RNA sequence: AACGUUCGCGUCUCCUGACGGGUAAUUGUGGAGCACCACAGUGGAGGCGCGGAACUUUAUAAAGCCGACCGUCUGGGCAGCAUCC
Numbered sequence: 001a002a003c004g005u006u007c008g009c010g011u012c013u014c015c016u017g018a019c020g021g022g023u024a025a026u027u028g029u030g031g032a033g034c035a036c037c038a039c040a041g042u043g044g045a046g047g048c049g050c051g052g053a054a055c056u057u058u059a060u061a062a063a064g065c066c067g068a069c070c071g072u073c074u075g076g077g078c079a080g081c082a083u084c085c
Stems, first nucleotide, its partner, number of pairs: 005053008015043001017073005028039004064078003
RNA: ZMP/ZTP riboswitch aptamer (pfl RNA motif)